[Rfam]
Nucleotides: 116
Base pairs, nucleotide, nucleotide: 003114005112006111007110008109009108010107017029018028019027031096032095033085034084035049036048037047038046044083045082052061053060054059065081066080067079068078069077087099088098089097
Number, partner (000 for none) and nucleotide at each position: 001000a002000a003114u004000a005112c006111u007110c008109u009108c010107c011000g012000g013000g014000g015000c016000a017029g018028g019027g020000u021000g022000a023000a024000a025000u026000u027019c028018c029017c030000g031096a032095c033085c034084g035049g036048c037047g038046g039000u040000u041000a042000a043000a044083g045082c046038c047037c048036g049035c050000g051000a052061g053060u054059c055000u056000u057000c058000g059054g060053a061052c062000u063000g064000a065081u066080c067079c068078g069077g070000u071000g072000a073000a074000a075000u076000u077069c078068c079067g080066g081065a082045g083044c084034c085033g086000a087099c088098a089097g090000u091000g092000a093000a094000a095032g096031u097089c098088u099087g100000g101000a102000u103000g104000g105000g106000a107010g108009g109008a110007g111006a112005g113000a114003a115000c116000a